[Rfam]
RNA sequence: GAUCGCCUGGAAUGUUUGCUAGCACGCUAAUGUCCCUGAGCCGAUGCUUUUUUAAUAAGGGGUUCACUGAGCGACUAUUGUGCAAGCUCGACAUGUAUCGAGAAGCCUACGGUCGUGUAUUUGCGCCCCGCCUUGAACCAAAGGGUUCAAGGGCAACAGCACUGCGGCGGCAUUUUGGGUGGUCA
Numbered sequence: 001g002a003u004c005g006c007c008u009g010g011a012a013u014g015u016u017u018g019c020u021a022g023c024a025c026g027c028u029a030a031u032g033u034c035c036c037u038g039a040g041c042c043g044a045u046g047c048u049u050u051u052u053u054a055a056u057a058a059g060g061g062g063u064u065c066a067c068u069g070a071g072c073g074a075c076u077a078u079u080g081u082g083c084a085a086g087c088u089c090g091a092c093a094u095g096u097a098u099c100g101a102g103a104a105g106c107c108u109a110c111g112g113u114c115g116u117g118u119a120u121u122u123g124c125g126c127c128c129c130g131c132c133u134u135g136a137a138c139c140a141a142a143g144g145g146u147u148c149a150a151g152g153g154c155a156a157c158a159g160c161a162c163u164g165c166g167g168c169g170g171c172a173u174u175u176u177g178g179g180u181g182g183u184c185a
Stems, first nucleotide, its partner, number of pairs: 002183014017169003032154004037149006059129003063125001065123002071116006082106002087102005
Dot-bracket structure: .((((((((((((((.(((............((((.((((((................(((.(.((....((((((.....((...(((((......)))))..))....)))))).....)).).)))..............)))))).))))............)))))))))))))))))..
The family of this 185-nucleotide RNA from Pseudidiomarina taiwanensis is "6S / SsrS RNA". A search with the family's covariance model found it, with a score of 106 bits. Rfam's curators write: E. coli 6S RNA was the first non coding RNA to be sequenced, but its function was unknown until recently. It consists of 184 nucleotides that fold into an extended hairpin structure with a large single-stranded internal bulge. The 6S RNA specifically associates with RNA polymerase holoenzyme containing the sigma70 specificity factor. Pairs were carried over by alignment from the consensus structure, which is taken from published work.